[Rfam]
RNA sequence: GUCAUGGGGCAGCGAUCGCCCCACGAGGCUACGGCCGAAGAAUCGCGUCCUUGAACCCGCACCAACGGAGGACGCGCUGCCAUG
Numbered sequence: 001g002u003c004a005u006g007g008g009g010c011a012g013c014g015a016u017c018g019c020c021c022c023a024c025g026a027g028g029c030u031a032c033g034g035c036c037g038a039a040g041a042a043u044c045g046c047g048u049c050c051u052u053g054a055a056c057c058c059g060c061a062c063c064a065a066c067g068g069a070g071g072a073c074g075c076g077c078u079g080c081c082a083u084g
Base pairs, nucleotide, nucleotide: 005023006022007021008020009019010018045075046074047073048072049071050070

A member of the RNA family "chrB-a RNA" from Rhizobium johnstonii, 84 nucleotides long. Rfam classes the family as a cis-regulatory element. NCBI's taxonomy places the organism under Bacteria, Pseudomonadota, Hyphomicrobiales, Rhizobiaceae, Rhizobium johnstonii.